[Rfam]
RNA sequence: CACCGCCCGUCGCUCCUACCGAUUGAAUAAAGAGGUGAAAUUCUAGGAUUCUGUCUUAUAGAUAGAAAAAUGGAUUUAAAUCUCCUUAUUUAGAGGAAGGAGAAGUCGUAACAAGGUUUCCGUAGGUGAACCUGCGGAAGGAUCAUUA
Numbered sequence: 001c002a003c004c005g006c007c008c009g010u011c012g013c014u015c016c017u018a019c020c021g022a023u024u025g026a027a028u029a030a031a032g033a034g035g036u037g038a039a040a041u042u043c044u045a046g047g048a049u050u051c052u053g054u055c056u057u058a059u060a061g062a063u064a065g066a067a068a069a070a071u072g073g074a075u076u077u078a079a080a081u082c083u084c085c086u087u088a089u090u091u092a093g094a095g096g097a098a099g100g101a102g103a104a105g106u107c108g109u110a111a112c113a114a115g116g117u118u119u120c121c122g123u124a125g126g127u128g129a130a131c132c133u134g135c136g137g138a139a140g141g142a143u144c145a146u147u148a
Base pairs, nucleotide, nucleotide: 003115005112008108009107011105013102014101015100016099017098019096020095023092025091026090027089028088029087030086032084033083034082035081036080039077040076042074043073044072045071049067050066051065052064053063054062055061117140118139119138120137121136122135123134124133125132126131